[Rfam]
This 82-nucleotide sequence belongs to the Rfam family "HTH-XRE RNA".
RNA sequence: AAUCAGAAGUGUAGGUGACACAGGGCAGUUGUCACAUCGGAACUCUGCACCCGGAAGACUUGCAAAGGUGGACAGAUUGUUU
Numbered sequence: 001a002a003u004c005a006g007a008a009g010u011g012u013a014g015g016u017g018a019c020a021c022a023g024g025g026c027a028g029u030u031g032u033c034a035c036a037u038c039g040g041a042a043c044u045c046u047g048c049a050c051c052c053g054g055a056a057g058a059c060u061u062g063c064a065a066a067g068g069u070g071g072a073c074a075g076a077u078u079g080u081u082u
Stems, first nucleotide, its partner, number of pairs: 009050006015035006
Rfam's curators put it in the seed alignment.